[Rfam]
RNA: Glycine riboswitch aptamer
RNA sequence: GCGGGAGAGUGCAUGACGGUUCGCGAGGGCCGCCACGCCGCCGAAGGAGCAACCGCCCCCGGAAUCUCUCAGGCACCAGGGACCGC
Numbered sequence: 001g002c003g004g005g006a007g008a009g010u011g012c013a014u015g016a017c018g019g020u021u022c023g024c025g026a027g028g029g030c031c032g033c034c035a036c037g038c039c040g041c042c043g044a045a046g047g048a049g050c051a052a053c054c055g056c057c058c059c060c061g062g063a064a065u066c067u068c069u070c071a072g073g074c075a076c077c078a079g080g081g082a083c084c085g086c
Stems, first nucleotide, its partner, number of pairs: 001086004011038002014035001040074003043070002047068003053061001